drz-agam-1 ribozyme: a 78-nucleotide RNA sequence from Erpetoichthys calabaricus. Pairs were carried over by alignment from the consensus structure, which is taken from published work. The organism belongs to Erpetoichthys, within Eukaryota.

RNA sequence: GGCUAGCAAAAUCCUAUCAUCACCUCCUUGUGGUGUUAGCUGGUAACCAGAAUCCUAGAGACCUUGGCUAAUGGUGGG
Numbered sequence: 001g002g003c004u005a006g007c008a009a010a011a012u013c014c015u016a017u018c019a020u021c022a023c024c025u026c027c028u029u030g031u032g033g034u035g036u037u038a039g040c041u042g043g044u045a046a047c048c049a050g051a052a053u054c055c056u057a058g059a060g061a062c063c064u065u066g067g068c069u070a071a072u073g074g075u076g077g078g
Base pairs, nucleotide, nucleotide: 013078014077015076016075017074018073019072020071022034023033024032045069047067048066049065050064053061054060